[Rfam]
The family of this 90-nucleotide part of an RNA from archaeon HR01 is "Archaeal large subunit ribosomal RNA". A reference for the family is Yusupov et al. (2001), "Crystal structure of the ribosome at 5.5 A resolution", Science. It scores 2028 bits against the family's covariance model.

RNA sequence: GGGCUGCUCCCAAGGUACUCCAUCCGAAUGCACCCACGUGGGUGCGUAGGGUGGAUUAUCCGGGGUAGCCCGCUCCGUCUUGAAACACGG
Dot-bracket structure: (((((((((....((...(((((((...(.(((((....))))).)..)))))))....)).)))))))))...((((........))))